A member of the RNA family "Small nucleolar RNA SNORD87" from Podiceps cristatus, 79 nucleotides long. The family has 10 seed sequences and 539 matches in Rfam 15.1. A search with the family's covariance model found it, with a score of 54 bits. Rfam links the family to the GO terms RNA processing and nucleolus. A reference for the family is Gogolevskaya et al. (2002), "U87 RNA, a novel C/D box small nucleolar RNA from mammalian cells", Gene.

RNA sequence: GCUGGCAUAAUGAUGAAAUCUUUGCCGUUUACCCAUCUGACUGGUUUUUGAUGUGUAUCUUUGAAUCUGAAAUGCCAGC
Numbered sequence: 001g002c003u004g005g006c007a008u009a010a011u012g013a014u015g016a017a018a019u020c021u022u023u024g025c026c027g028u029u030u031a032c033c034c035a036u037c038u039g040a041c042u043g044g045u046u047u048u049u050g051a052u053g054u055g056u057a058u059c060u061u062u063g064a065a066u067c068u069g070a071a072a073u074g075c076c077a078g079c
Stems, first nucleotide, its partner, number of pairs: 001079007